[Rfam]
RNA: TPP riboswitch aptamer (THI element)
RNA sequence: AAAUGGCGUUACGGGUAUCCAAUUUUAUAAAUGUUGGAUUGAGAAGGCUUUGCCCUACCGUUAGAACUUGAACUAGGUCAUACUAGCGUAAGGAAAUGCCAUUAAAAGUUA
Number, nucleotide and partner (000 for none) at each position: 001a000002a000003a000004u000005g000006g099007c098008g097009u096010u095011a061012c060013g059014g058015g000016u000017a039018u038019c037020c036021a035022a034023u033024u000025u000026u000027a000028u000029a000030a000031a000032u000033g023034u022035u021036g020037g019038a018039u017040u000041g000042a000043g000044a000045a000046g054047g053048c052049u000050u000051u000052g048053c047054c046055c000056u000057a000058c014059c013060g012061u011062u000063a000064g000065a000066a000067c092068u091069u090070g089071a000072a000073c086074u085075a084076g083077g000078u000079c000080a000081u000082a000083c076084u075085a074086g073087c000088g000089u070090a069091a068092g067093g000094a000095a010096a009097u008098g007099c006100c000101a000102u000103u000104a000105a000106a000107a000108g000109u000110u000111a000